[Rfam]
Source information
The record is a 112-nucleotide RNA from Kroppenstedtia eburnea, which matches "SAM riboswitch aptamer (S box leader)" in Rfam. Gene Ontology term of the family: regulation of gene expression.
RNA sequence: UCGUUAUCCAGAGUGGUGGAGGGACUGGCCCGAUGAAACCCGGCAACCCGCCUGCGCAUGUUCGCAGGCAAGGUGCCAAAUCCUGCAACGCCCAGGCGUUGAGAGAUAAGGA
Numbered sequence: 001u002c003g004u005u006a007u008c009c010a011g012a013g014u015g016g017u018g019g020a021g022g023g024a025c026u027g028g029c030c031c032g033a034u035g036a037a038a039c040c041c042g043g044c045a046a047c048c049c050g051c052c053u054g055c056g057c058a059u060g061u062u063c064g065c066a067g068g069c070a071a072g073g074u075g076c077c078a079a080a081u082c083c084u085g086c087a088a089c090g091c092c093c094a095g096g097c098g099u100u101g102a103g104a105g106a107u108a109a110g111g112a
Stems, first nucleotide, its partner, number of pairs: 001112002004109005013041001015040003021031003025085001027083002042077004047073002050069006081104001086101006